[Rfam]
RNA sequence: CUCACCCAGGGCUCCUGUAGCUCAGGGGGCAGCCCUGAGCCCUGCGUUCACCCCGCCACCGGCCAGCUCCCCCUCCCAGCAACGGGGCACCCCUGGCCCCAUCCUGAGGGGCUCCGAACUGGCUCCCACCGAGGCAGGGGAUCUGACUGACUUGGAGUUCGGCUGGAUGUUACAGGCGUGCAAA
Numbered sequence: 001c002u003c004a005c006c007c008a009g010g011g012c013u014c015c016u017g018u019a020g021c022u023c024a025g026g027g028g029g030c031a032g033c034c035c036u037g038a039g040c041c042c043u044g045c046g047u048u049c050a051c052c053c054c055g056c057c058a059c060c061g062g063c064c065a066g067c068u069c070c071c072c073c074u075c076c077c078a079g080c081a082a083c084g085g086g087g088c089a090c091c092c093c094u095g096g097c098c099c100c101a102u103c104c105u106g107a108g109g110g111g112c113u114c115c116g117a118a119c120u121g122g123c124u125c126c127c128a129c130c131g132a133g134g135c136a137g138g139g140g141a142u143c144u145g146a147c148u149g150a151c152u153u154g155g156a157g158u159u160c161g162g163c164u165g166g167a168u169g170u171u172a173c174a175g176g177c178g179u180g181c182a183a184a
Stems, first nucleotide, its partner, number of pairs: 008043007017034001020030004044179005060169002063166003068111004083106005113156004120145001121143002124140004157163002

Record summary:
The record is a 184-nucleotide sequence from Dipodomys ordii, which matches "Spi-1 (PU.1) 5' UTR regulatory element" in Rfam. NCBI's taxonomy places the organism under Eukaryota, Opisthokonta, Dipnotetrapodomorpha, Dipodomyinae, Dipodomys. The family has 5 seed sequences and 131 matches in Rfam 15.1. The family's consensus secondary structure is taken from published work.